[Rfam]
RNA sequence: GUUCCAGAGUGAUAGGAAGGCGGUUUUAUCACCGUAUAGAUGUCACUUAAUCUUGUAAAUUGCUGGAAACUUUUUAUUUUAUUGAGGCAUACUACUUCUGCCUGCGAAGCUAGGGCGACAAGCCAAAAAUACAUAAAAACAAUCAGCAGGAAAACUUAAAAUAAAGGUUGGCAUACGCAGUAUCCGCUAUAUUUAAGGAUCUUCAGAGACUAUGCGCAAGACAUUUAAUAAGGUAUAGCAUAGGACAGGACUGGACCCUGCCUUUAUUAAAUGAAGAUAUAGUCCGAACAUAAAAGUGAUUUUAUG
Numbered sequence: 001g002u003u004c005c006a007g008a009g010u011g012a013u014a015g016g017a018a019g020g021c022g023g024u025u026u027u028a029u030c031a032c033c034g035u036a037u038a039g040a041u042g043u044c045a046c047u048u049a050a051u052c053u054u055g056u057a058a059a060u061u062g063c064u065g066g067a068a069a070c071u072u073u074u075u076a077u078u079u080u081a082u083u084g085a086g087g088c089a090u091a092c093u094a095c096u097u098c099u100g101c102c103u104g105c106g107a108a109g110c111u112a113g114g115g116c117g118a119c120a121a122g123c124c125a126a127a128a129a130u131a132c133a134u135a136a137a138a139a140c141a142a143u144c145a146g147c148a149g150g151a152a153a154a155c156u157u158a159a160a161a162u163a164a165a166g167g168u169u170g171g172c173a174u175a176c177g178c179a180g181u182a183u184c185c186g187c188u189a190u191a192u193u194u195a196a197g198g199a200u201c202u203u204c205a206g207a208g209a210c211u212a213u214g215c216g217c218a219a220g221a222c223a224u225u226u227a228a229u230a231a232g233g234u235a236u237a238g239c240a241u242a243g244g245a246c247a248g249g250a251c252u253g254g255a256c257c258c259u260g261c262c263u264u265u266a267u268u269a270a271a272u273g274a275a276g277a278u279a280u281a282g283u284c285c286g287a288a289c290a291u292a293a294a295a296g297u298g299a300u301u302u303u304a305u306g
Stems, first nucleotide, its partner, number of pairs: 002011001004009001051221004056216001061148006071139007149202002155197004163190001165188002206285001208284005224271009291304005
RNA: Group I catalytic intron
Organism: Diaporthe ampelina